[Rfam]
Rfam assigns this 142-nucleotide sequence from Firmicutes bacterium CAG:227 to the family "Ribosomal protein L10 leader".
RNA sequence: CUGCUAGAGGAAUAGCUGCCGAAGACAGCAGGUGCCGUUAGGCAUAAGGUUAAAACGCCUGCCGAGGAAAGAUUCAUUCUUACAAAGUUUAGGAUUGAUAAAACCUCUCUGUCUUGUGCGGAGAGGUCUUUUUGUAAGUACU
Numbered sequence: 001c002u003g004c005u006a007g008a009g010g011a012a013u014a015g016c017u018g019c020c021g022a023a024g025a026c027a028g029c030a031g032g033u034g035c036c037g038u039u040a041g042g043c044a045u046a047a048g049g050u051u052a053a054a055a056c057g058c059c060u061g062c063c064g065a066g067g068a069a070a071g072a073u074u075c076a077u078u079c080u081u082a083c084a085a086a087g088u089u090u091a092g093g094a095u096u097g098a099u100a101a102a103a104c105c106u107c108u109c110u111g112u113c114u115u116g117u118g119c120g121g122a123g124a125g126g127u128c129u130u131u132u133u134g135u136a137a138g139u140a141c142u
Base pairs, nucleotide, nucleotide: 028062029061030060031059032058033057034043035042036041103127104126105125106124107123108122109121110120111119112118
Lineage of the source: Bacteria > Bacillati > Bacillota.
A search with the family's covariance model found it, with a score of 75 bits.